[Rfam]
RNA sequence: UAGUGAAAAGGGCAAAACGCAGGAAACUGCGUGACGCAAAGCCACAGGGCCUGAACCCUCAAGGGAUUCUCUUGAUGGAAGGCAGCCGGUUGCCACA
Dot-bracket structure: ...........((...((((((....))))))...))..((((...(((((....(..(..............)..)...)))..))))))......

c-di-GMP-I riboswitch aptamer: a 97-nucleotide RNA sequence from Paenibacillus mucilaginosus.